[Rfam]
RNA sequence: UUCUUAUCAUGAGAGGUGGAGGGACUGGCCCAGUGAAACCUCAGCAACCAGCCGUAAGGCCAGGUGCUAAUUCCAGACAGAUAAGAA
Numbered sequence: 001u002u003c004u005u006a007u008c009a010u011g012a013g014a015g016g017u018g019g020a021g022g023g024a025c026u027g028g029c030c031c032a033g034u035g036a037a038a039c040c041u042c043a044g045c046a047a048c049c050a051g052c053c054g055u056a057a058g059g060c061c062a063g064g065u066g067c068u069a070a071u072u073c074c075a076g077a078c079a080g081a082u083a084a085g086a087a
Base pairs, nucleotide, nucleotide: 001087002086003085004084005083006082007081008080013042014041015040016039017038021031022030023029025076026075027074028073043068044067045066046065048064049063051060052059053058072079